[Rfam]
RNA sequence: ACAAUCUCGGGGUAAGUUCUGGGGGAAACGCGUAAUGACCAUUAAAGCUGGUGACAUUACGUAAGGUAGGUAUCAGUAAAACUUUACUGAUAGAAGGGAUACUAGUGGCAACGGUGCCAUAUAAACGGGAAACCCAACA
Numbered sequence: 001a002c003a004a005u006c007u008c009g010g011g012g013u014a015a016g017u018u019c020u021g022g023g024g025g026a027a028a029c030g031c032g033u034a035a036u037g038a039c040c041a042u043u044a045a046a047g048c049u050g051g052u053g054a055c056a057u058u059a060c061g062u063a064a065g066g067u068a069g070g071u072a073u074c075a076g077u078a079a080a081a082c083u084u085u086a087c088u089g090a091u092a093g094a095a096g097g098g099a100u101a102c103u104a105g106u107g108g109c110a111a112c113g114g115u116g117c118c119a120u121a122u123a124a125a126c127g128g129g130a131a132a133c134c135c136a137a138c139a
Base pairs, nucleotide, nucleotide: 006023007022008021009020010019011018030062031061032060033059034058035057036056037055040051071092072091073090074089075088076087077086078085079084106119107118108117109116110115
DABA-DC-AT RNA: a 139-nucleotide sequence from Aliivibrio salmonicida. The sequence is in the family's curated seed alignment. Rfam classes the family as a cis-regulatory element.